Rfam assigns this 131-nucleotide RNA sequence from Pseudomonas sp. M47T1 to the family "Group II catalytic intron D1-D4-7". From the family's description: Group II introns are found in rRNA, tRNA and mRNA of organelles in fungi, plants and protists, and also in mRNA in bacteria. It scores 70 bits against the family's covariance model. The base pairs follow the family's consensus structure.

[Rfam]
RNA sequence: CCACCCGUGUCACCGGGUGAAUCUAGAAGGCUGAAUCAAGAGCGCUUUCGACAAUGUGACGAGGCACCACAAGGUGCGGGGUACUAAUCGCGAGAGGCGUACCCUUCUGGCAGCCAUGGCCGGACAAGGGC
Numbered sequence: 001c002c003a004c005c006c007g008u009g010u011c012a013c014c015g016g017g018u019g020a021a022u023c024u025a026g027a028a029g030g031c032u033g034a035a036u037c038a039a040g041a042g043c044g045c046u047u048u049c050g051a052c053a054a055u056g057u058g059a060c061g062a063g064g065c066a067c068c069a070c071a072a073g074g075u076g077c078g079g080g081g082u083a084c085u086a087a088u089c090g091c092g093a094g095a096g097g098c099g100u101a102c103c104c105u106u107c108u109g110g111c112a113g114c115c116a117u118g119g120c121c122g123g124a125c126a127a128g129g130g131c
Stems, first nucleotide, its partner, number of pairs: 002019006027048005032039001064077005079104004088095002106124006

The literature on the family includes a 2001 paper in Trends Genet by Bonen and Vogel, "The ins and outs of group II introns".